[Rfam]
Shown here is an 86-nucleotide sequence from Chrysochloris asiatica, a member of the family "mir-431 microRNA precursor family". On this family, see Goff et al., PLoS One 2009: "Ago2 immunoprecipitation identifies predicted microRNAs in human embryonic stem cells and neural precursors". Rfam links the family to the GO terms cellular response to lipopolysaccharide, cellular response to leukemia inhibitory factor and miRNA-mediated post-transcriptional gene silencing. A search with the family's covariance model found it, with a score of 91 bits.

RNA sequence: CGUCCUGCGGGCUGUCUUGCAGGCCGUCAUGCAGGCCACCUUGACGGUAACGUUGCAGGUCGCCCUGCUGGGCUUCUCGCAAGAUG
Number, nucleotide and partner (000 for none) at each position: 001c086002g085003u084004c083005c000006u081007g080008c079009g078010g077011g076012c000013u000014g073015u072016c071017u070018u000019g068020c067021a066022g065023g064024c000025c062026g061027u000028c059029a000030u057031g056032c055033a054034g053035g048036c047037c046038a000039c000040c000041u000042u000043g000044a000045c000046g037047g036048u035049a000050a000051c000052g000053u034054u033055g032056c031057a030058g000059g028060u000061c026062g025063c000064c023065c022066u021067g020068c019069u000070g017071g016072g015073c014074u000075u000076c011077u010078c009079g008080c007081a006082a000083g004084a003085u002086g001
Taxonomically the source falls in Chrysochloris (Eukaryota, Deuterostomia, Vertebrata, Amniota). The family has 9 seed sequences and 122 matches in Rfam 15.1. The family's consensus secondary structure was predicted with RNAalifold.